[Rfam]
RNA: Bacterial RNase P class A
Nucleotides: 324
Stems, first nucleotide, its partner, number of pairs: 001320010011309001013290006020037007042307003046304005051203004064230001068198005073087005088102001090099002103193002108191002110187003125150002128146007162182001163180007207248004217239006255274008
Number, partner (000 for none) and nucleotide at each position: 001320g002319a003318u004317a005316u006315a007314a008313g009312u010311a011309g012000a013290g014289u015288g016287g017286u018285u019000g020037c021036a022035a023034g024033a025032u026031c027000a028000g029000a030000u031026g032025a033024u034023c035022u036021u037020g038000a039000g040000g041000a042307a043306a044305g045000u046304c047303c048302g049301a050300a051203c052202u053201c054200u055000c056000a057000c058000g059000a060000c061000g062000a063000u064230g065000u066000a067000c068198c069197a070196u071195a072194a073087u074086a075085c076084g077083a078000g079000a080000a081000u082000u083077u084076c085075g086074u087073a088102u089000a090099c091098a092000u093000u094000c095000a096000u097000u098091u099090g100000g101000g102088a103193g104192g105000a106000a107000a108191g109190u110187g111186c112185c113000a114000c115000a116000g117000a118000a119000a120000u121000u122000a123000a124000a125150c126149u127000u128146g129145c130144u131143u132142u133141a134140a135000u136000a137000u138000u139000u140134u141133u142132a143131a144130a145129g146128u147000g148000g149126a150125g151000g152000u153000g154000u155000a156000a157000u158000a159000u160000u161000u162182c163180a164179a165178c166177a167176u168175u169174u170000g171000u172000a173000a174169g175168a176167a177166u178165g179164u180163u181000u182162g183000u184000u185112g186111g187110u188000a189000g190109a191108c192104c193103c194072u195071u196070a197069u198068g199000g200054a201053g202052a203051g204000c205000a206000a207248a208247a209246g210245a211000a212000u213000a214000u215000a216000a217239a218238u219237c220236u221235c222234a223000a224000u225000g226000a227000c228000a229000u230064c231000u232000c233000u234222u235221g236220g237219g238218a239217u240000u241000a242000a243000a244000a245210u246209c247208u248207u249000g250000c251000u252000a253000g254000a255274a256273a257272a258271u259270u260269u261268c262267a263000a264000u265000a266000a267262u268261g269260a270259a271258a272257u273256u274255u275000c276000c277000a278000g279000a280000u281000a282000a283000a284000u285018a286017a287016c288015c289014a290013c291000a292000a293000a294000a295000c296000a297000g298000a299000a300050u301049u302048c303047g304046g305044c306043u307042u308000a309011u310000c311010u312009a313008u314007u315006u316005a317004u318003a319002u320001c321000g322000u323000u324000u